[Rfam]
RNA sequence: UCGACACUCUGGAAAGCGGCCUGGCGGCGUUCGCCCGGCCCACCGAAGGGGUAAGCCGCGUCGCCGCGAGGUGACCGGUCAAAGCUCUCAGGUUCCGUGACAGAGGGGGCGGC
Numbered sequence: 001u002c003g004a005c006a007c008u009c010u011g012g013a014a015a016g017c018g019g020c021c022u023g024g025c026g027g028c029g030u031u032c033g034c035c036c037g038g039c040c041c042a043c044c045g046a047a048g049g050g051g052u053a054a055g056c057c058g059c060g061u062c063g064c065c066g067c068g069a070g071g072u073g074a075c076c077g078g079u080c081a082a083a084g085c086u087c088u089c090a091g092g093u094u095c096c097g098u099g100a101c102a103g104a105g106g107g108g109g110c111g112g113c
Base pairs, nucleotide, nucleotide: 005107007105008104009103010102011101018040019039020038021037042093043092044091045089046088049087050086051085055080